[Rfam]
RNA sequence: UUGAAUACGUACGGGAGCUUACGAAAGUAGGCUGAGAGUGCGACUAACUCGUCGCAGACCGUCAGAACCUGUUGGAUAAUGCCAGCGCAGGAAGGAUUUACGAUAGAUGUGU
Numbered sequence: 001u002u003g004a005a006u007a008c009g010u011a012c013g014g015g016a017g018c019u020u021a022c023g024a025a026a027g028u029a030g031g032c033u034g035a036g037a038g039u040g041c042g043a044c045u046a047a048c049u050c051g052u053c054g055c056a057g058a059c060c061g062u063c064a065g066a067a068c069c070u071g072u073u074g075g076a077u078a079a080u081g082c083c084a085g086c087g088c089a090g091g092a093a094g095g096a097u098u099u100a101c102g103a104u105a106g107a108u109g110u111g112u
Stems, first nucleotide, its partner, number of pairs: 006100002009097002011062004017032005039056005068091004072085004